This 78-nucleotide sequence from Columbina picui belongs to the Rfam family "Small nucleolar RNA SNORD69". Rfam links the family to the GO terms RNA processing and nucleolus. For this family Rfam cites "RNomics: an experimental approach that identifies 201 candidates for novel, small, non-messenger RNAs in mouse" (Huttenhofer et al., EMBO J, 2001). It scores 41 bits against the family's covariance model. Rfam describes the family as follows. snoRNA HBII-210 belongs to the C/D family of snoRNAs. It is the human orthologue of the mouse MBII-210 and is predicted to guide the 2'O-ribose methylation of large 28S rRNA on residue G4464. Rfam classes the family as a C/D-box small nucleolar RNA. The base pairs follow the family's consensus structure.
RNA sequence: UACACAAAGCAAAUGAUGGAAAAGCACAAAAACUGACUCUCUAUGAAGUGCAUUCAGUCCAACGCUGAGCUUUGUGCC
Numbered sequence: 001u002a003c004a005c006a007a008a009g010c011a012a013a014u015g016a017u018g019g020a021a022a023a024g025c026a027c028a029a030a031a032a033c034u035g036a037c038u039c040u041c042u043a044u045g046a047a048g049u050g051c052a053u054u055c056a057g058u059c060c061a062a063c064g065c066u067g068a069g070c071u072u073u074g075u076g077c078c
Stems, first nucleotide, its partner, number of pairs: 003076008